[Rfam]
RNA sequence: GCUCUGUCUUUCCUAACCUUUGCGCCCUAUAUUAGCGGUGCCGGUUCGCCGGCUAUGGAAAUAAAUGACCGUCGCAAUAAACCAUUCGGACCCGGGGGCAGUACCCGGCGCCUCCACCAAAACCCGUGACCUUCGCGUAUUGAACGCGGGUUUCGGCGGGGGCGAAACAGGAUCGACGAGGGCGUAAAGGGCGCGUUUUUUCUCGGUAUGGUUCCGCCGACAUCGGGCCAUGCAAUAGUUGCAAACGACAACUAUGCUCCGGUUGCUCAGGCUGCGUAACGCAGUUUGAAAGACCAUCUUAAAGUCCUAACGGGUUAAGCUCCGUUAGGCGGGGUUCGGAGGCACCUGGCAACAGAAGCCUCCACU
Numbered sequence: 001g002c003u004c005u006g007u008c009u010u011u012c013c014u015a016a017c018c019u020u021u022g023c024g025c026c027c028u029a030u031a032u033u034a035g036c037g038g039u040g041c042c043g044g045u046u047c048g049c050c051g052g053c054u055a056u057g058g059a060a061a062u063a064a065a066u067g068a069c070c071g072u073c074g075c076a077a078u079a080a081a082c083c084a085u086u087c088g089g090a091c092c093c094g095g096g097g098g099c100a101g102u103a104c105c106c107g108g109c110g111c112c113u114c115c116a117c118c119a120a121a122a123c124c125c126g127u128g129a130c131c132u133u134c135g136c137g138u139a140u141u142g143a144a145c146g147c148g149g150g151u152u153u154c155g156g157c158g159g160g161g162g163c164g165a166a167a168c169a170g171g172a173u174c175g176a177c178g179a180g181g182g183c184g185u186a187a188a189g190g191g192c193g194c195g196u197u198u199u200u201u202c203u204c205g206g207u208a209u210g211g212u213u214c215c216g217c218c219g220a221c222a223u224c225g226g227g228c229c230a231u232g233c234a235a236u237a238g239u240u241g242c243a244a245a246c247g248a249c250a251a252c253u254a255u256g257c258u259c260c261g262g263u264u265g266c267u268c269a270g271g272c273u274g275c276g277u278a279a280c281g282c283a284g285u286u287u288g289a290a291a292g293a294c295c296a297u298c299u300u301a302a303a304g305u306c307c308u309a310a311c312g313g314g315u316u317a318a319g320c321u322c323c324g325u326u327a328g329g330c331g332g333g334g335u336u337c338g339g340a341g342g343c344a345c346c347u348g349g350c351a352a353c354a355g356a357a358g359c360c361u362c363c364a365c366u
Stems, first nucleotide, its partner, number of pairs: 040053005057203005067197003070193004082182002086179003092108005109164007204219004209230003213227003332347004338363006

Alphaproteobacteria transfer-messenger RNA: a 366-nucleotide sequence from Bradyrhizobium erythrophlei. Taxonomically the source falls in Bradyrhizobium (Bacteria, Pseudomonadati, Hyphomicrobiales, Nitrobacteraceae). The family is grouped with related families in Rfam's "tRNA clan". On this family, see Zwieb et al., Nucleic Acids Res 2003: "tmRDB (tmRNA database)". By type it is a non-coding RNA gene.